[Rfam]
RNA sequence: CUGCCACGCGGCGGGCUACUGUGACUGGACACUGACACACAGUCAACUAGCCUCGUUGACACGGUUCUUCGCGAGCAGAACCGGAACGGUCCGAGCCACGAGGGGGGAGGCUCGGACCGUUCAUU
Number, nucleotide and partner (000 for none) at each position: 001c014002u013003g012004c011005c010006a000007c000008g000009c000010g005011g004012c003013g002014g001015g051016c050017u049018a048019c000020u000021g032022u031023g030024a000025c000026u000027g000028g000029a000030c023031a022032c021033u045034g044035a043036c042037a000038c000039a000040c000041a000042g036043u035044c034045a033046a000047c000048u018049a017050g016051c015052c000053u000054c000055g000056u000057u000058g000059a000060c073061a000062c071063g070064g069065u000066u000067c000068u000069u064070c063071g062072c000073g060074a000075g000076c083077a000078g000079a000080a000081c000082c000083g076084g000085a121086a120087c119088g118089g117090u116091c115092c114093g113094a112095g111096c110097c109098a000099c106100g000101a000102g000103g000104g000105g000106g099107g000108a000109g097110g096111c095112u094113c093114g092115g091116a090117c089118c088119g087120u086121u085122c000123a000124u000125u000
About this RNA: Shown here is a 125-nucleotide RNA sequence from Streptomyces alboniger, a member of the family "Streptomyces RNA 3920". The pairing is the family consensus, mapped onto this sequence. Rfam describes the family as follows. Identified by deep sequencing of transcriptome at the end of exponential growth phase. Sequencing size consistent with northern blot size. Streptomyces specific. The family's RNA type in Rfam is small RNA.